[Rfam]
A member of the RNA family "6S / SsrS RNA" from Myxococcus xanthus, 196 nucleotides long. It is annotated as a non-coding RNA gene.
Nucleotides: 196
Stems, first nucleotide, its partner, number of pairs: 002194010013180003017177003034161001036160001038158005057139003062134003070124001073123002080114002085110005
Number, partner (000 for none) and nucleotide at each position: 001000u002194g003193u004192c005191c006190c007189c008188u009187g010186c011185g012000g013180g014179g015178c016000g017177c018176g019175u020000g021000a022000u023000g024000c025000u026000c027000g028000g029000c030000a031000g032000a033000a034161a035000u036160u037000c038158g039157a040156a041155c042154c043000g044000a045000u046000a047000c048000g049000u050000c051000c052000a053000u054000u055000c056000c057139g058138g059137g060000g061000u062134c063133c064132g065000u066000u067000u068000c069000g070124g071000u072000c073123u074122c075000c076000a077000u078000g079000u080114g081113c082000a083000a084000g085110c086109c087108c088107u089106c090000c091000c092000u093000c094000c095000u096000c097000a098000c099000g100000g101000g102000g103000g104000a105000u106089g107088a108087g109086g110085g111000a112000a113081g114080c115000c116000u117000g118000c119000g120000g121000a122074g123073g124070c125000a126000u127000g128000a129000u130000u131000u132064c133063g134062g135000u136000c137059c138058c139057c140000a141000c142000c143000u144000g145000g146000c147000u148000u149000u150000u151000g152000a153000g154042g155041g156040u157039u158038c159000a160036a161034u162000g163000g164000a165000c166000g167000c168000c169000g170000g171000g172000c173000a174000c175019a176018c177017g178015g179014c180013c181000a182000u183000g184000c185011u186010g187009c188008g189007g190006g191005g192004g193003g194002c195000u196000u
The source organism's lineage runs through Bacteria, Myxococcota, Myxococcales, Cystobacterineae and Myxococcus xanthus. E. coli 6S RNA was the first non coding RNA to be sequenced, but its function was unknown until recently. It consists of 184 nucleotides that fold into an extended hairpin structure with a large single-stranded internal bulge. The family's consensus secondary structure is taken from published work.